RNA sequence: CUACACAUUAAGCCGAAGCUCGAAAGAGCGCGGGGGAACCAACUACUGGGGUGAAGUCGUUUUUACGGCCGGUGUACUCCCCACCGAACCCGUCAGCUAACCUCGUAGGCGUAAAGGAGGAAACAU
Numbered sequence: 001c002u003a004c005a006c007a008u009u010a011a012g013c014c015g016a017a018g019c020u021c022g023a024a025a026g027a028g029c030g031c032g033g034g035g036g037a038a039c040c041a042a043c044u045a046c047u048g049g050g051g052u053g054a055a056g057u058c059g060u061u062u063u064u065a066c067g068g069c070c071g072g073u074g075u076a077c078u079c080c081c082c083a084c085c086g087a088a089c090c091c092g093u094c095a096g097c098u099a100a101c102c103u104c105g106u107a108g109g110c111g112u113a114a115a116g117g118a119g120g121a122a123a124c125a126u
Stems, first nucleotide, its partner, number of pairs: 012110003018029003030106006040048002049091003057068004071085004

Shown here is a 126-nucleotide RNA sequence from Heliobacterium mobile, a member of the family "c-di-AMP riboswitch aptamer (ydaO/yuaA leader)". The base pairs follow the family's consensus structure. A reference for the family is Barrick et al. (2004), "New RNA motifs suggest an expanded scope for riboswitches in bacterial genetic control", Proc Natl Acad Sci U S A. It scores 97 bits against the family's covariance model.